[Rfam]
The family of this 190-nucleotide RNA from Paenibacillus pini is "glmS glucosamine-6-phosphate activated ribozyme aptamer". It scores 77 bits against the family's covariance model. The base pairs follow the family's consensus structure, which is taken from published work.
RNA sequence: UAAGCAUUACAAGCGCCAGAGCUUGAGCUAGCGCGGGACGGGUACAGCGUGUUUGUAUCCACGGCAGCCAAGCUGACGAGGUGAAGGUGUUCGAAACAUUCGGCGGGGACCUUCCGGUGAUACACAGCCGUAAACCAAGACGGAAAAUGAAUGGGCGACUGUUCACACAACGAUUUUGGUAGGUGUAAGC
Numbered sequence: 001u002a003a004g005c006a007u008u009a010c011a012a013g014c015g016c017c018a019g020a021g022c023u024u025g026a027g028c029u030a031g032c033g034c035g036g037g038a039c040g041g042g043u044a045c046a047g048c049g050u051g052u053u054u055g056u057a058u059c060c061a062c063g064g065c066a067g068c069c070a071a072g073c074u075g076a077c078g079a080g081g082u083g084a085a086g087g088u089g090u091u092c093g094a095a096a097c098a099u100u101c102g103g104c105g106g107g108g109a110c111c112u113u114c115c116g117g118u119g120a121u122a123c124a125c126a127g128c129c130g131u132a133a134a135c136c137a138a139g140a141c142g143g144a145a146a147a148u149g150a151a152u153g154g155g156c157g158a159c160u161g162u163u164c165a166c167a168c169a170a171c172g173a174u175u176u177u178g179g180u181a182g183g184u185g186u187a188a189g190c
Base pairs, nucleotide, nucleotide: 020074021073022072023071024070025069083114084113085112086111087110091103092102093101094100115130116129117128118126119125134180135179136178137177138176139175140174148165149164150163151162152161153160154159